Rfam assigns this 88-nucleotide sequence from Zizania palustris to the family "Small nucleolar RNA snoR109".
Rfam classes the family as an H/ACA-box small nucleolar RNA.
Rfam links the family to the GO terms nucleolus and RNA processing.
The base pairs follow the family's consensus structure, which was predicted with WAR.

[Rfam]
RNA sequence: CGGCUGUAGCCAAAUCAACAAUGAAGUUAAAACUGGUCGGCUCCCAAUUGAUUCCAUGGGCAAUCCGCUUACCGAACUUCGUAUAUAC
Numbered sequence: 001c002g003g004c005u006g007u008a009g010c011c012a013a014a015u016c017a018a019c020a021a022u023g024a025a026g027u028u029a030a031a032a033c034u035g036g037u038c039g040g041c042u043c044c045c046a047a048u049u050g051a052u053u054c055c056a057u058g059g060g061c062a063a064u065c066c067g068c069u070u071a072c073c074g075a076a077c078u079u080c081g082u083a084u085a086u087a088c
Base pairs, nucleotide, nucleotide: 021082022081023080024079025078026077027076028075035069036068037067039065040064042062043060044059045058046057